Record summary:
Shown here is a 131-nucleotide RNA sequence from Dipodomys ordii, a member of the family "Small nucleolar RNA SNORA68". The match comes from Rfam's covariance-model search (125 bits). U68 is a member of the H/ACA class of small nucleolar RNAs (snoRNAs) which act as guides in the the modification of uridines to pseudouridines. Taxonomically the source falls in Dipodomys (Eukaryota, Chordata, Tetrapoda, Dipodomyinae). Gene Ontology terms of the family: nucleolus and RNA processing. The family has 26 seed sequences and 1,079 matches in Rfam 15.1. A reference for the family is Ganot et al. (1997), "The family of box ACA small nucleolar RNAs is defined by an evolutionarily conserved secondary structure and ubiquitous sequence elements essential for RNA accumulation", Genes Dev. The base pairs follow the family's consensus structure, which was predicted with PFOLD.
Nucleotides: 131
Base pairs, nucleotide, nucleotide: 003058004057005056006055007054008053019044020043021042022041023040024039026037027036028035069124070123071122072121073120074119075118081109082108083107084106085105086103087102088101089100090099
Number, partner (000 for none) and nucleotide at each position: 001000c002000u003058c004057g005056c006055a007054c008053c009000c010000a011000a012000a013000c014000c015000c016000a017000a018000g019044a020043a021042c022041u023040g024039c025000u026037g027036c028035u029000u030000g031000u032000g033000g034000u035028a036027g037026c038000c039024g040023c041022a042021g043020u044019u045000u046000a047000a048000a049000c050000c051000g052000a053008g054007g055006u056005g057004c058003g059000c060000a061000c062000a063000g064000c065000a066000a067000g068000u069124g070123g071122g072121c073120c074119u075118c076000g077000u078000c079000g080000c081109c082108u083107u084106u085105g086103g087102g088101g089100g090099c091000u092000g093000u094000g095000c096000u097000g098000u099090g100089c101088c102087c103086c104000g105085c106084g107083g108082a109081g110000u111000g112000a113000a114000u115000g116000u117000u118075g119074a120073g121072g122071c123070c124069c125000u126000a127000c128000a129000c130000c131000c